[Rfam]
RNA sequence: CCAGGAAAAUGACCUAUGAAUUGACAGACUGCUUUCAAAAUGUGCCUGUCAUUUCUAUAGGCCAAUAUUCUGU
Dot-bracket structure: .(((((.(.((.((((.(((.((((((.(..............).)))))).)))..)))).)).).))))).

Shown here is a 73-nucleotide RNA from Gallus gallus, a member of the family "mir-192/215 microRNA precursor family". The sequence is in the family's curated seed alignment. This family represents the human microRNA (miRNA) precursors mir-192 and mir-215. Animal miRNAs are transcribed as ~70nt precursors and subsequently processed by the Dicer enzyme to give a ~22nt product. Rfam 15.1 lists 810 matches to the family in 628 species. Taxonomically the source falls in Gallus (Eukaryota, Tetrapoda, Archelosauria, Galloanserae).